This 539-nucleotide part of an RNA from Ramalina farinacea belongs to the Rfam family "Eukaryotic large subunit ribosomal RNA".
RNA sequence: GAAGUUUCGUAAGUUCUUCCCAGGACCCCCCCCCCCCAGAACAAUGACUAACAAUUUCAAUAGCCUCAGGAUAGCAGUAACGUUUUCAGUUUUAUGAGGUAAAGCGAAUGAUUAGAGGCCUUGGGGAUGAAACAUCCUUGUGAGUGUCAUCCUUUCCCCCAUUAUCUCUCCUAGGACAGCGCGCUGACUUCGAAUUCAGAACCUAUUCUCAAACUUUCAAUAUGUAAGAAGUCCUUGUUACUUAGUUGAACGUGGACAUUUGAAUGCACCGUUACUAGUGGGCCAUUUUUGGUAAGCAGAACUGGCGAUGCGGGAUGAACCGAACGUGGGGUUAAGGUGCCGGAAUGUACGCUCAUCAGACACCAAGGGGAAAACUUGUGGUGUCUGGCCGGGGGAUAGCCCCCCCGGCAUCAGUCUGCCAAAGGCGAGGUCUUUGACCUGUAGGGGUCGGUCGUCGCUCCCGCGAUAGCCUACCCUCUGCUGUCCCUUCCCCGGGGCAGCUCACAGAUCAAGCGAAGGCCGGCGGCCGUGCGCCGUUG
Number, nucleotide and partner (000 for none) at each position: 001g000002a000003a000004g000005u073006u000007u071008c070009g000010u000011a000012a000013g000014u000015u000016c000017u000018u000019c000020c000021c000022a000023g000024g000025a000026c000027c000028c000029c000030c000031c000032c000033c000034c000035c000036c000037c000038a000039g000040a000041a000042c000043a000044a000045u000046g000047a000048c000049u000050a000051a000052c000053a000054a000055u000056u000057u000058c000059a000060a000061u000062a000063g000064c000065c000066u000067c000068a000069g000070g008071a007072u000073a005074g000075c000076a276077g275078u274079a273080a272081c271082g270083u000084u000085u000086u000087c000088a000089g000090u229091u228092u227093u226094a225095u224096g223097a000098g000099g000100u000101a000102a217103a215104g214105c000106g000107a000108a000109u211110g210111a209112u000113u000114a206115g000116a204117g203118g202119c000120c000121u201122u200123g000124g000125g197126g196127a000128u194129g000130a000131a000132a000133c000134a000135u000136c000137c000138u000139u000140g000141u000142g000143a000144g000145u000146g000147u000148c000149a000150u000151c000152c000153u000154u000155u000156c000157c000158c000159c000160c000161a000162u000163u000164a000165u000166c000167u000168c000169u000170c000171c000172u000173a000174g000175g000176a000177c000178a000179g000180c000181g000182c000183g000184c000185u000186g000187a000188c000189u000190u000191c000192g000193a000194a128195u000196u126197c125198a000199g000200a122201a121202c118203c117204u116205a000206u114207u000208c000209u111210c110211a109212a000213a000214c104215u103216u000217u102218c000219a000220a000221u000222a000223u096224g095225u094226a093227a092228g091229a090230a000231g257232u256233c255234c254235u000236u252237g251238u250239u249240a000241c000242u000243u000244a000245g000246u000247u000248g000249a239250a238251c237252g236253u000254g234255g233256a232257c231258a000259u000260u000261u000262g000263a000264a000265u000266g000267c000268a000269c000270c082271g081272u080273u079274a078275c077276u076277a000278g000279u000280g000281g000282g306283c305284c304285a303286u000287u301288u300289u299290u298291g297292g000293u000294a000295a000296g000297c291298a290299g289300a288301a287302c000303u285304g284305g283306c282307g000308a000309u000310g000311c536312g535313g534314g000315a000316u000317g000318a000319a000320c000321c000322g000323a000324a000325c000326g000327u000328g000329g000330g000331g000332u000333u000334a000335a000336g000337g000338u000339g000340c000341c000342g000343g000344a000345a000346u000347g000348u000349a000350c000351g000352c000353u000354c000355a000356u000357c000358a000359g000360a000361c000362a000363c000364c000365a000366a000367g000368g000369g000370g000371a000372a000373a000374a000375c000376u000377u000378g000379u000380g000381g000382u000383g000384u000385c000386u000387g000388g000389c000390c000391g000392g000393g000394g000395g000396a000397u000398a000399g000400c000401c000402c000403c000404c000405c000406c000407g000408g000409c000410a000411u000412c000413a000414g000415u000416c000417u000418g000419c000420c000421a000422a000423a000424g000425g000426c000427g000428a000429g000430g000431u000432c000433u000434u000435u000436g000437a000438c000439c000440u000441g000442u000443a000444g000445g000446g000447g000448u000449c000450g000451g000452u000453c000454g000455u000456c000457g000458c000459u000460c000461c000462c000463g000464c000465g000466a000467u000468a000469g000470c000471c000472u000473a000474c000475c000476c000477u000478c000479u000480g000481c000482u000483g000484u000485c000486c000487c000488u000489u000490c000491c000492c000493c000494g000495g000496g000497g000498c000499a000500g000501c000502u000503c000504a000505c000506a000507g000508a000509u000510c000511a000512a000513g000514c000515g000516a000517a000518g000519g000520c000521c000522g000523g000524c000525g000526g000527c000528c000529g000530u000531g000532c000533g000534c313535c312536g311537u000538u000539g000